[Rfam]
RNA sequence: CACCGCGUGGAGCCUGGACAACCCGAGACAGGGGCGGGGGAACCACACAUUGGCUGGAAGCACAGCCUUGGGGUGAAGUGUGAAAGCUGUACACAACAGCUGGAGCGCCGAGUGACUCCAACUCGAACCCGACAGCUUACCUCGCUGGCAUAACUGGAGAGACGA
Dot-bracket structure: (.............................)..((((((....((.......................))(((.....(((.......................)))..((((.......))))...))).........))))))....................
RNA: c-di-AMP riboswitch aptamer (ydaO/yuaA leader)
Organism: Jonesia denitrificans